[Rfam]
RNA sequence: CGCUUAUUUUGCCCAGGCGGAGCUCGACCGCCCGUUUCGCAAAUGACGGCUUUCAUUGAUGAAUCCCGCGAGGAGUUCGGGGUCGAGCCGAUCUGCCGCGUACUGCUGAUCGCCCCG
Number, nucleotide and partner (000 for none) at each position: 001c000002g000003c000004u000005u000006a000007u000008u000009u000010u000011g000012c000013c000014c000015a000016g032017g031018c030019g029020g028021a000022g000023c000024u000025c000026g000027a000028c020029c019030g018031c017032c016033c000034g000035u000036u000037u000038c000039g000040c000041a000042a000043a000044u000045g000046a000047c000048g000049g000050c000051u000052u000053u000054c000055a000056u000057u000058g000059a000060u000061g000062a000063a000064u000065c000066c000067c000068g000069c000070g000071a000072g000073g000074a000075g000076u000077u000078c117079g116080g115081g114082g113083u000084c000085g000086a000087g000088c000089c112090g111091a000092u109093c108094u000095g106096c105097c000098g103099c000100g000101u000102a000103c098104u000105g096106c095107u000108g093109a092110u000111c090112g089113c082114c081115c080116c079117g078

Rfam assigns this 117-nucleotide RNA from Palleronia caenipelagi to the family "ALIL pseudoknot". Rfam links the family to the GO term positive regulation of translational frameshifting. Pairs were carried over by alignment from the consensus structure, which is taken from published work. The family has 26 seed sequences and 2,146 matches in Rfam 15.1.